[Rfam]
RNA sequence: GUAGUGAUCAGCAAAAAACACACAUGUGUCGACACGUUGACCCAGGGUGCUUGUCAGGAUCGGAUCCUGCAGGUUGGGCAAUUGGACACGUGGAGGACUAAC
Numbered sequence: 001g002u003a004g005u006g007a008u009c010a011g012c013a014a015a016a017a018a019c020a021c022a023c024a025u026g027u028g029u030c031g032a033c034a035c036g037u038u039g040a041c042c043c044a045g046g047g048u049g050c051u052u053g054u055c056a057g058g059a060u061c062g063g064a065u066c067c068u069g070c071a072g073g074u075u076g077g078g079c080a081a082u083u084g085g086a087c088a089c090g091u092g093g094a095g096g097a098c099u100a101a102c
Stems, first nucleotide, its partner, number of pairs: 023092008036082004041078004049074005
Overview:
Rfam assigns this 102-nucleotide RNA sequence from Marinobacter sp. R17 to the family "t44 RNA". It is annotated as a small RNA. A search with the family's covariance model found it, with a score of 62 bits. Taxonomically the source falls in Marinobacter (Bacteria, Gammaproteobacteria, Pseudomonadales, Marinobacteraceae).